Shown here is a 201-nucleotide RNA sequence from Microcebus murinus, a member of the family "Small nucleolar RNA SNORA73 family". The organism belongs to Microcebus, within Eukaryota. It is annotated as an H/ACA-box small nucleolar RNA. For this family Rfam cites "Comparative Structure Analysis of Vertebrate U17 Small Nucleolar RNA (snoRNA)" (Cervelli et al., J Mol Evol, 2002). Rfam describes the family as follows. U17 (SNORA73A and SNORA73B) also known as E1 belongs to the H/ACA class of small nucleolar RNAs (snoRNAs). Vertebrate U17 is intron-encoded and ranges in length from 200-230 nucleotides, longer than most snoRNAs. It is one of the most abundant snoRNAs in human cells and is essential for the cleavage of pre-rRNA within the 5' external transcribed spacer (ETS). This cleavage leads to the formation of 18S rRNA. Regions of the U17 RNA are complementary to rRNA and act as guides for RNA/RNA interactions, although these regions do not seem to be well conserved between organisms.
RNA sequence: CCAAUUGUGGAUACUCCAGGAGGUUACUCUCUCCUGGCUUUGUCCAAAUGGCACAGGGGAGCAGAAGGCUCUAGAGCCCCAUGGUGUACAGUCUCUUUCCACAGCACUGGAGAGGAUACUGGGUCUGCACCUGCAUAUUCCUACAGCUUCUCAGAGGACUUCAGACAAUGACUAGGGAGACAAAUCAUGCAGGAAAUAUAU
Numbered sequence: 001c002c003a004a005u006u007g008u009g010g011a012u013a014c015u016c017c018a019g020g021a022g023g024u025u026a027c028u029c030u031c032u033c034c035u036g037g038c039u040u041u042g043u044c045c046a047a048a049u050g051g052c053a054c055a056g057g058g059g060a061g062c063a064g065a066a067g068g069c070u071c072u073a074g075a076g077c078c079c080c081a082u083g084g085u086g087u088a089c090a091g092u093c094u095c096u097u098u099c100c101a102c103a104g105c106a107c108u109g110g111a112g113a114g115g116a117u118a119c120u121g122g123g124u125c126u127g128c129a130c131c132u133g134c135a136u137a138u139u140c141c142u143a144c145a146g147c148u149u150c151u152c153a154g155a156g157g158a159c160u161u162c163a164g165a166c167a168a169u170g171a172c173u174a175g176g177g178a179g180a181c182a183a184a185u186c187a188u189g190c191a192g193g194a195a196a197u198a199u200a201u
Stems, first nucleotide, its partner, number of pairs: 001110003006106003009045005015037002019030004049101003057095004061089001063087001065085001066082001130193007147179005156166001159164001